[Rfam]
RNA: ZMP/ZTP riboswitch aptamer (pfl RNA motif)
RNA sequence: CCCGGGCCUCGCGACUGGCGCUAAAGAUGGGUAUCCAUCAGGGAACGAGGCUGGCCAAACGGCCAUGUCGAGCCGCGCGCCUGGGUGAUCCAU
Dot-bracket structure: ..(.(((((((...(([[[[[.....((((....))))..))...))))))).).................(((..]]]]]..))).......